[Rfam]
RNA sequence: GCUUAAGUAGCUCAGUGGUAGAGCGUCAGGCUGAAAACCUGAAGGUCAUUGGUCCGAUUCCAUUCUUAGGCA
Numbered sequence: 001g002c003u004u005a006a007g008u009a010g011c012u013c014a015g016u017g018g019u020a021g022a023g024c025g026u027c028a029g030g031c032u033g034a035a036a037a038c039c040u041g042a043a044g045g046u047c048a049u050u051g052g053u054c055c056g057a058u059u060c061c062a063u064u065c066u067u068a069g070g071c072a
Stems, first nucleotide, its partner, number of pairs: 001071007010024004026042005048064001050062003
Dot-bracket structure: (((((((..((((.......)))).(((((.......))))).....(.(((.......))).)))))))).
Notes: This 72-nucleotide sequence from Tetrahymena pyriformis belongs to the Rfam family "tRNA". Rfam's curators put it in the seed alignment. The source organism's lineage runs through Eukaryota, Alveolata, Oligohymenophorea, Tetrahymenidae and Tetrahymena.